RNA sequence: GCGAACUCUGGAAAGCAGGUGUGCGGGCGUGCCCGCGCCCUCACCCACGGUGCAAACCCGCCCCCGGGCGCGGUGAAGCUCUCAGGUCCAUGACAGAGCGGGGAGG
Numbered sequence: 001g002c003g004a005a006c007u008c009u010g011g012a013a014a015g016c017a018g019g020u021g022u023g024c025g026g027g028c029g030u031g032c033c034c035g036c037g038c039c040c041u042c043a044c045c046c047a048c049g050g051u052g053c054a055a056a057c058c059c060g061c062c063c064c065c066g067g068g069c070g071c072g073g074u075g076a077a078g079c080u081c082u083c084a085g086g087u088c089c090a091u092g093a094c095a096g097a098g099c100g101g102g103g104a105g106g
Base pairs, nucleotide, nucleotide: 006098007097008096009095010094017041018040019039043087044086045085047082050081052079056074057073
RNA: Glycine riboswitch aptamer
Organism: Streptoalloteichus hindustanus